A member of the RNA family "Small nucleolar RNA SNORA17" from Mus spicilegus, 131 nucleotides long. Rfam links the family to the GO terms RNA processing and nucleolus. From the family's description: snoRNA ACA 17 belongs to the H/ACA family of snoRNAs and is predicted to guide pseudouridylation of the 28S rRNA at positions U4659 and U4598. The literature on the family includes a 1997 paper in J Mol Biol by Ofengand and Bakin, "Mapping to nucleotide resolution of pseudouridine residues in large subunit ribosomal RNAs from representative eukaryotes, prokaryotes, archaebacteria, mitochondria and chloroplasts".
[Rfam]
RNA sequence: ACUGCCCCUAGUGGCAGUGAAAUGUGGCUGCUGUGUCACAUGUGUGUCAGUAGGUGGCAGAGAGGAGAGAGGUUAUGUCUACCCUCAGUGAUCUGACUUACGAACAUCUGAAUUAUUAGCAGCCUAACAUU
Numbered sequence: 001a002c003u004g005c006c007c008c009u010a011g012u013g014g015c016a017g018u019g020a021a022a023u024g025u026g027g028c029u030g031c032u033g034u035g036u037c038a039c040a041u042g043u044g045u046g047u048c049a050g051u052a053g054g055u056g057g058c059a060g061a062g063a064g065g066a067g068a069g070a071g072g073u074u075a076u077g078u079c080u081a082c083c084c085u086c087a088g089u090g091a092u093c094u095g096a097c098u099u100a101c102g103a104a105c106a107u108c109u110g111a112a113u114u115a116u117u118a119g120c121a122g123c124c125u126a127a128c129a130u131u
Base pairs, nucleotide, nucleotide: 002060003059004058005057006056007054008053009052010051013048014047015046019045021043023040024039025038026037027036028035067128070125071124072123073122074121076119085111086110087109088108089106090105092103093102